[Rfam]
RNA sequence: AGAAUCAAGAUGAUGAAAUCAGGAAAUCUUAGGACACCUUCUGACACAGUACCAUUCUGUGUAUGAGAAAAGAUUUUCGAUUCUGAUAAUUCA
Numbered sequence: 001a002g003a004a005u006c007a008a009g010a011u012g013a014u015g016a017a018a019u020c021a022g023g024a025a026a027u028c029u030u031a032g033g034a035c036a037c038c039u040u041c042u043g044a045c046a047c048a049g050u051a052c053c054a055u056u057c058u059g060u061g062u063a064u065g066a067g068a069a070a071a072g073a074u075u076u077u078c079g080a081u082u083c084u085g086a087u088a089a090u091u092c093a
Base pairs, nucleotide, nucleotide: 002092003091004090005089007087042048043047
RNA: Small nucleolar RNA snoR31/Z110/Z27